[Rfam]
RNA sequence: GCCGGGGGUUGUAGCGUAUCCCUGUCACCCGAGCGGGGGCUGAUGUUGCGAAGCGUCGCAUGAUUCUUCCGGUCUAGCAGUUCGCGUCGAGGGCGUGUCCUCUCUGAGCGUACAGUUGGCAACGUGGCUUCCCUGACGGGUGGUCCUCGUGGUCGGAUGAAUAGCCUGGCACCGCGUGAGGCAGGAAACUGAGCAGCGAAAACGGGCAGCUGCGCGCGGCAGAAGGAUAGCAUGCCUGAGUGAGCGGCUAGGCCACCCGGAAGGUCCUCUGAGGGGCGACCAACGUUU
Numbered sequence: 001g002c003c004g005g006g007g008g009u010u011g012u013a014g015c016g017u018a019u020c021c022c023u024g025u026c027a028c029c030c031g032a033g034c035g036g037g038g039g040c041u042g043a044u045g046u047u048g049c050g051a052a053g054c055g056u057c058g059c060a061u062g063a064u065u066c067u068u069c070c071g072g073u074c075u076a077g078c079a080g081u082u083c084g085c086g087u088c089g090a091g092g093g094c095g096u097g098u099c100c101u102c103u104c105u106g107a108g109c110g111u112a113c114a115g116u117u118g119g120c121a122a123c124g125u126g127g128c129u130u131c132c133c134u135g136a137c138g139g140g141u142g143g144u145c146c147u148c149g150u151g152g153u154c155g156g157a158u159g160a161a162u163a164g165c166c167u168g169g170c171a172c173c174g175c176g177u178g179a180g181g182c183a184g185g186a187a188a189c190u191g192a193g194c195a196g197c198g199a200a201a202a203c204g205g206g207c208a209g210c211u212g213c214g215c216g217c218g219g220c221a222g223a224a225g226g227a228u229a230g231c232a233u234g235c236c237u238g239a240g241u242g243a244g245c246g247g248c249u250a251g252g253c254c255a256c257c258c259g260g261a262a263g264g265u266c267c268u269c270u271g272a273g274g275g276g277c278g279a280c281c282a283a284c285g286u287u288u
Stems, first nucleotide, its partner, number of pairs: 001040003004023006028037003042287007050280001053277002056273001058270001060268001062266002065264006071254008080245001082243003087239001091237008099226002103223004108217004113212004117155004122150003126146002129143002133140002157162001164207005175198003182191003
A member of the RNA family "Plant signal recognition particle RNA" from Gonium pectorale, 288 nucleotides long. Rfam classes the family as a non-coding RNA gene. The match comes from Rfam's covariance-model search (137 bits).